[Rfam]
Rfam assigns this 114-nucleotide RNA sequence from Fusobacterium sp. FSA-380-WT-3A to the family "FMN riboswitch aptamer (RFN element)".
The match comes from Rfam's covariance-model search (116 bits).
The RFN element is a highly conserved domain that is found frequently in the 5'-untranslated regions of prokaryotic mRNAs that encode for flavin mononucleotide (FMN) biosynthesis and transport proteins.
RNA sequence: GUAAAACUUCAGGGCAGGGUGAAAUUCCCGAUCGGCGGUAAAGUCCGCGAGUGUUAUCACUGACUUGGUGAAAUUCCAAGACCGACAGUAUAGUCUGGAUGGAAGAAGAUUACA
Dot-bracket structure: ...((.((((......(((.......))).[[((((((....[[))))..(((....)))...(((((.......)))))]])).(((....]]))).......)))).))...
Numbered sequence: 001g002u003a004a005a006a007c008u009u010c011a012g013g014g015c016a017g018g019g020u021g022a023a024a025u026u027c028c029c030g031a032u033c034g035g036c037g038g039u040a041a042a043g044u045c046c047g048c049g050a051g052u053g054u055u056a057u058c059a060c061u062g063a064c065u066u067g068g069u070g071a072a073a074u075u076c077c078a079a080g081a082c083c084g085a086c087a088g089u090a091u092a093g094u095c096u097g098g099a100u101g102g103a104a105g106a107a108g109a110u111u112a113c114a
Stems, first nucleotide, its partner, number of pairs: 004111002007108004017029003031094002033084002035048004043082002051060003064080005086097003